[Rfam]
RNA sequence: AUAUCUGUUCAGGGCGAGGUGAAAUCCCUCACUGGCGGUGACGUCCCACGUUGCACGAAGCAGCAGGGCGAAGUCCGCGACCCUGACAGGUUGCAAGCAGGCGGCCCCGUGGCCGCAGCGUCGCAGCCCGUCAGGCUGAUCUGGUGAGAAUCCAGGACCAACGGUUACAGUCCGGAUGGAAGAACAGGAGC
Numbered sequence: 001a002u003a004u005c006u007g008u009u010c011a012g013g014g015c016g017a018g019g020u021g022a023a024a025u026c027c028c029u030c031a032c033u034g035g036c037g038g039u040g041a042c043g044u045c046c047c048a049c050g051u052u053g054c055a056c057g058a059a060g061c062a063g064c065a066g067g068g069c070g071a072a073g074u075c076c077g078c079g080a081c082c083c084u085g086a087c088a089g090g091u092u093g094c095a096a097g098c099a100g101g102c103g104g105c106c107c108c109g110u111g112g113c114c115g116c117a118g119c120g121u122c123g124c125a126g127c128c129c130g131u132c133a134g135g136c137u138g139a140u141c142u143g144g145u146g147a148g149a150a151u152c153c154a155g156g157a158c159c160a161a162c163g164g165u166u167a168c169a170g171u172c173c174g175g176a177u178g179g180a181a182g183a184a185c186a187g188g189a190g191c
Stems, first nucleotide, its partner, number of pairs: 004188007017029003031171002033160002035078004073158002082135006140156005162174003
Source information
Rfam assigns this 191-nucleotide RNA sequence from Senegalimassilia anaerobia to the family "FMN riboswitch aptamer (RFN element)". About the family: The RFN element is a highly conserved domain that is found frequently in the 5'-untranslated regions of prokaryotic mRNAs that encode for flavin mononucleotide (FMN) biosynthesis and transport proteins. Rfam links the family to the GO term FMN binding. The organism belongs to Senegalimassilia, within Bacteria. It scores 92 bits against the family's covariance model.